[Rfam]
RNA sequence: UGGCCAUCCCCGGGGGACCGCUAUGCCGCGGUUGAGAGGUGGGCAGGAGCCCAUGACCCGCUGAACCUGAUCCGGCUGACACCGGCGUAGGGAGGGAGCGGUCGGCCAAC
Numbered sequence: 001u002g003g004c005c006a007u008c009c010c011c012g013g014g015g016g017a018c019c020g021c022u023a024u025g026c027c028g029c030g031g032u033u034g035a036g037a038g039g040u041g042g043g044c045a046g047g048a049g050c051c052c053a054u055g056a057c058c059c060g061c062u063g064a065a066c067c068u069g070a071u072c073c074g075g076c077u078g079a080c081a082c083c084g085g086c087g088u089a090g091g092g093a094g095g096g097a098g099c100g101g102u103c104g105g106c107c108a109a110c
Base pairs, nucleotide, nucleotide: 007097008096009095010094011060012059013058014057016054017032018031019030020029021028040053041052042051043050044049066091067090068089069088072085073084074083075082
TPP riboswitch aptamer (THI element): a 110-nucleotide RNA sequence from Sphingomonas desiccabilis. The match comes from Rfam's covariance-model search (65 bits). The source organism's lineage runs through Bacteria, Pseudomonadati, Alphaproteobacteria, Sphingomonadales and Sphingomonas.